[Rfam]
RNA sequence: AUACGUACUUAGACGGGGUCGAUGGGUGAUCGGGAAGGCUAAUGGCCUGGGUAGGUGGCUACUAUUUCACUUAGGCAGUGCGCGUGUCUAAUGUCUGCCCAAAGUGGGUGAGCAUACGUCAUAAGCUGUGGCGGCGGGGGGUUGUGAUCUCGCGGCCCCUGG
Numbered sequence: 001a002u003a004c005g006u007a008c009u010u011a012g013a014c015g016g017g018g019u020c021g022a023u024g025g026g027u028g029a030u031c032g033g034g035a036a037g038g039c040u041a042a043u044g045g046c047c048u049g050g051g052u053a054g055g056u057g058g059c060u061a062c063u064a065u066u067u068c069a070c071u072u073a074g075g076c077a078g079u080g081c082g083c084g085u086g087u088c089u090a091a092u093g094u095c096u097g098c099c100c101a102a103a104g105u106g107g108g109u110g111a112g113c114a115u116a117c118g119u120c121a122u123a124a125g126c127u128g129u130g131g132c133g134g135c136g137g138g139g140g141g142u143u144g145u146g147a148u149c150u151c152g153c154g155g156c157c158c159c160u161g162g
Stems, first nucleotide, its partner, number of pairs: 012120004016048006023042001025040003049089003055083003060078001062075002091115003094111002098107002135161005141156001143154004